[Rfam]
RNA sequence: CGCCCCCCCCAGCCGCAGAACCAUGUCUGCUCUGAGCUGGGUACUGUCUGUUCAGAACAAACACUGGUUUCCAGCAUGCAGCCAAGUGGCC
Numbered sequence: 001c002g003c004c005c006c007c008c009c010c011a012g013c014c015g016c017a018g019a020a021c022c023a024u025g026u027c028u029g030c031u032c033u034g035a036g037c038u039g040g041g042u043a044c045u046g047u048c049u050g051u052u053c054a055g056a057a058c059a060a061a062c063a064c065u066g067g068u069u070u071c072c073a074g075c076a077u078g079c080a081g082c083c084a085a086g087u088g089g090c091c
Base pairs, nucleotide, nucleotide: 002090003089004088006086012082013081015079016078018070019069020068021067022066024063025062026061028059029058031056032055033054034053035052036051037050039048040047
Shown here is a 91-nucleotide RNA from Spermophilus dauricus, a member of the family "mir-589 microRNA precursor family".